[Rfam]
RNA: Selenocysteine transfer RNA
Organism: Tepidibacillus sp. HK-1
RNA sequence: GGGAGUGGCUGAGAUUCUGGUGUUCUCCCCGGUCUUCAAAACCGAGUGAGGGGCGCGUGACGUCCCUGGUGGGUUCGAUUCCCAUCCACUCCC
Numbered sequence: 001g002g003g004a005g006u007g008g009c010u011g012a013g014a015u016u017c018u019g020g021u022g023u024u025c026u027c028c029c030c031g032g033u034c035u036u037c038a039a040a041a042c043c044g045a046g047u048g049a050g051g052g053g054c055g056c057g058u059g060a061c062g063u064c065c066c067u068g069g070u071g072g073g074u075u076c077g078a079u080u081c082c083c084a085u086c087c088a089c090u091c092c093c
Base pairs, nucleotide, nucleotide: 001093002092003091004090005089006088007087008086011027012026013025014024017022028046030044031043032042033041049067050066051065052064053063070084071083072082073081